[Rfam]
RNA sequence: CUGCAUGUUUCCAAGGACUGUGGCUGGUUGUUGCCAUGGGAUCUCCAACUGCAUGCAAGAACAAUGUGGAGAGACUUUGACAGCUUAGGUCAGUACAGUACCUGUAGCUGCCACUCACCUUUCCUAUAAUG
Numbered sequence: 001c002u003g004c005a006u007g008u009u010u011c012c013a014a015g016g017a018c019u020g021u022g023g024c025u026g027g028u029u030g031u032u033g034c035c036a037u038g039g040g041a042u043c044u045c046c047a048a049c050u051g052c053a054u055g056c057a058a059g060a061a062c063a064a065u066g067u068g069g070a071g072a073g074a075c076u077u078u079g080a081c082a083g084c085u086u087a088g089g090u091c092a093g094u095a096c097a098g099u100a101c102c103u104g105u106a107g108c109u110g111c112c113a114c115u116c117a118c119c120u121u122u123c124c125u126a127u128a129a130u131g
Base pairs, nucleotide, nucleotide: 011039012038016035018033020031021030022029068124069123070122071121072120073119083111084110086104087103088102089101
The family of this 131-nucleotide RNA sequence from Otolemur garnettii is "Small nucleolar RNA SNORA44". Pairs were carried over by alignment from the consensus structure, which was predicted with PFOLD. The source organism's lineage runs through Eukaryota, Dipnotetrapodomorpha, Tetrapoda, Primates and Otolemur. Rfam's curators write: ACA44 is a member of the H/ACA class of snoRNA that guide the sites of modification of uridines to pseudouridines. Its Rfam clan is "SNORA44 clan". The match comes from Rfam's covariance-model search (144 bits). It is annotated as an H/ACA-box small nucleolar RNA.